RNA sequence: GCCCUCCCCAACGCUGCGUUUCCAUGCUACAAACAGAGAGACUUGCCUAGUCUCUCAAUCUGCCUCCUGUUCGCGCAGGAGCAGCUCUACACGCAUGUGGGAAAUUCGGAGUAAGCCUCAACGCCACCUGCGCCUCGCCCCCUUCGGGGAGCGAGAUGCGGAGGUCUGCCGGUGACGGCCUGGCGUCAAUCGACGUCUGCAAACGAUAUCAGAAAUCUCGGAGCCCGUCGUCAGUGGCGGUGUCUCCAUGGGAAGUCUUUGCGAGGCUCGUUUUGGAAGAACUGGAGUGCGAUACGCAGCGUCCUUUGUCCUCUGGACGUGGAUGACUCAAUUCCGAUCACUCUGGGGAGGGC
Numbered sequence: 001g002c003c004c005u006c007c008c009c010a011a012c013g014c015u016g017c018g019u020u021u022c023c024a025u026g027c028u029a030c031a032a033a034c035a036g037a038g039a040g041a042c043u044u045g046c047c048u049a050g051u052c053u054c055u056c057a058a059u060c061u062g063c064c065u066c067c068u069g070u071u072c073g074c075g076c077a078g079g080a081g082c083a084g085c086u087c088u089a090c091a092c093g094c095a096u097g098u099g100g101g102a103a104a105u106u107c108g109g110a111g112u113a114a115g116c117c118u119c120a121a122c123g124c125c126a127c128c129u130g131c132g133c134c135u136c137g138c139c140c141c142c143u144u145c146g147g148g149g150a151g152c153g154a155g156a157u158g159c160g161g162a163g164g165u166c167u168g169c170c171g172g173u174g175a176c177g178g179c180c181u182g183g184c185g186u187c188a189a190u191c192g193a194c195g196u197c198u199g200c201a202a203a204c205g206a207u208a209u210c211a212g213a214a215a216u217c218u219c220g221g222a223g224c225c226c227g228u229c230g231u232c233a234g235u236g237g238c239g240g241u242g243u244c245u246c247c248a249u250g251g252g253a254a255g256u257c258u259u260u261g262c263g264a265g266g267c268u269c270g271u272u273u274u275g276g277a278a279g280a281a282c283u284g285g286a287g288u289g290c291g292a293u294a295c296g297c298a299g300c301g302u303c304c305u306u307u308g309u310c311c312u313c314u315g316g317a318c319g320u321g322g323a324u325g326a327c328u329c330a331a332u333u334c335c336g337a338u339c340a341c342u343c344u345g346g347g348g349a350g351g352g353c
Base pairs, nucleotide, nucleotide: 001353002352003351004350008346009345010344013300014299015298016297017296018295019294023097024096025095026094036087037086038085107336108335109334110333111332116266117265118264119263168179169178170177171176182197183196184195185194186193199262200261201260202259205258220247221246222245301324302323303322304321306319

The family of this 353-nucleotide RNA sequence from Fusarium albosuccineum is "Nuclear RNase P".
The family's consensus secondary structure is taken from published work.
Rfam classes the family as a ribozyme.
A search with the family's covariance model found it, with a score of 58 bits.
The family is grouped with related families in Rfam's "RNaseP clan".